The family of this 70-nucleotide sequence from Folsomia candida is "mir-1000 microRNA precursor family".
Rfam links the family to the GO terms miRNA-mediated post-transcriptional gene silencing, RISC complex and negative regulation of glutamate secretion, neurotransmission.
Rfam 15.1 lists 152 matches to the family in 150 species.
It scores 61 bits against the family's covariance model.
Nucleotides: 070
Base pairs, nucleotide, nucleotide: 003068004067005066012059013058014057015056016055017054018053022049023048025046026045027044028043029042
Number, partner (000 for none) and nucleotide at each position: 001000g002000g003068c004067u005066a006000c007000u008000a009000u010000a011000u012059u013058g014057u015056c016055c017054u018053g019000u020000c021000a022049c023048a024000g025046c026045a027044g028043u029042a030000c031000u032000g033000a034000a035000a036000a037000a038000u039000a040000g041000a042029u043028a044027c045026u046025g047000a048023u049022g050000u051000g052000u053018c054017g055016g056015g057014a058013c059012a060000u061000a062000u063000u064000c065000c066005u067004a068003g069000c070000c